A member of the RNA family "Guanidine-II riboswitch aptamer (mini-ykkC)" from Strongylocentrotus purpuratus, 57 nucleotides long. Pairs were carried over by alignment from the consensus structure, which is taken from published work. It scores 34 bits against the family's covariance model. Lineage of the source: Eukaryota > Echinodermata > Eleutherozoa > Echinoidea > Strongylocentrotus.

[Rfam]
RNA sequence: AGGGGGGGACGACCCCCCCCCCCUAAAAAAAAUUGAGGGGGGACGUGUCCCUCCCCC
Dot-bracket structure: .(((((((....)))))))..................(((((..........)))))